RNA sequence: CCCAGGGCGUUGCCCUGGGCUAUAACAUGUCGCCCCUUUGGGGCU
Number, nucleotide and partner (000 for none) at each position: 001c019002c018003c017004a016005g015006g014007g013008c012009g000010u000011u000012g008013c007014c006015c005016u004017g003018g002019g001020c000021u000022a000023u000024a000025a000026c000027a000028u000029g000030u000031c000032g044033c043034c042035c041036c040037u000038u000039u000040g036041g035042g034043g033044c032045u000

Shown here is a 45-nucleotide RNA from Desulfonatronum sp. SC1, a member of the family "Acido-Lenti-1 RNA". By type it is a small RNA. A search with the family's covariance model found it, with a score of 46 bits. The family's consensus secondary structure is taken from published work.